[Rfam]
RNA sequence: AUUCCUGUUGAAAGCCAGGAUCUGUCACCAAUAAUUGGUCGCUUACCCUGAAUAACAGGGGUUGGUGGCAGGGAGCCAGUAGCGAAACCGGUCAUGUAGAUU
Numbered sequence: 001a002u003u004c005c006u007g008u009u010g011a012a013a014g015c016c017a018g019g020a021u022c023u024g025u026c027a028c029c030a031a032u033a034a035u036u037g038g039u040c041g042c043u044u045a046c047c048c049u050g051a052a053u054a055a056c057a058g059g060g061g062u063u064g065g066u067g068g069c070a071g072g073g074a075g076c077c078a079g080u081a082g083c084g085a086a087a088c089c090g091g092u093c094a095u096g097u098a099g100a101u102u
Base pairs, nucleotide, nucleotide: 001102003100004099009094010093011092014076015075022071023070024069025068026067027066028065029064037089038088039085040084041083042082043081